Background
Rhizobiales sRNA Atu_C8: a 124-nucleotide RNA sequence. The family's consensus secondary structure was predicted with CMfinder.

RNA sequence: GAUGAUGACGACGAUGCUUAUCGUAGUAGGACCGCGCAUGGGCAAGGUGGCGUAGCCACCGGGCACGAUCCACCCAUGCGCGAUGACAGGCUCCCCUUCGAGGAGCCUUUUUUAUUGCCUUUCA
Numbered sequence: 001g002a003u004g005a006u007g008a009c010g011a012c013g014a015u016g017c018u019u020a021u022c023g024u025a026g027u028a029g030g031a032c033c034g035c036g037c038a039u040g041g042g043c044a045a046g047g048u049g050g051c052g053u054a055g056c057c058a059c060c061g062g063g064c065a066c067g068a069u070c071c072a073c074c075c076a077u078g079c080g081c082g083a084u085g086a087c088a089g090g091c092u093c094c095c096c097u098u099c100g101a102g103g104a105g106c107c108u109u110u111u112u113u114a115u116u117g118c119c120u121u122u123c124a
Base pairs, nucleotide, nucleotide: 009026029120030119032117033082034081035080036079037078038077039076040075041074042073046060047059048058049057050056063070086109088108089107090106091105092104093103094102